This 138-nucleotide sequence from Triplophysa tibetana belongs to the Rfam family "Small nucleolar RNA SNORA84". The match comes from Rfam's covariance-model search (56 bits). Pairs were carried over by alignment from the consensus structure, which was predicted with WAR. Lineage of the source: Eukaryota > Eumetazoa > Bilateria > Cobitoidei > Triplophysa. The literature on the family includes a 2002 paper in Curr Biol by Marker et al., "Experimental RNomics: identification of 140 candidates for small non-messenger RNAs in the plant Arabidopsis thaliana".
RNA sequence: GCCUGGUGGUUCCUUGAGACGGCCCGUUCAUGCUGGACAUCGAGGUUGUGUUUGACAGGCGCACAUUGAUUUCUGCGAUUUCAUGCUUGGAAGUUGAUGUUUCUGUGCUCCUUCCACAGCCCGGUUGCAGAGACAUGG
Numbered sequence: 001g002c003c004u005g006g007u008g009g010u011u012c013c014u015u016g017a018g019a020c021g022g023c024c025c026g027u028u029c030a031u032g033c034u035g036g037a038c039a040u041c042g043a044g045g046u047u048g049u050g051u052u053u054g055a056c057a058g059g060c061g062c063a064c065a066u067u068g069a070u071u072u073c074u075g076c077g078a079u080u081u082c083a084u085g086c087u088u089g090g091a092a093g094u095u096g097a098u099g100u101u102u103c104u105g106u107g108c109u110c111c112u113u114c115c116a117c118a119g120c121c122c123g124g125u126u127g128c129a130g131a132g133a134c135a136u137g138g
Stems, first nucleotide, its partner, number of pairs: 001060004007050002012045006020035004073130001075128006085120002088116003092112002096108001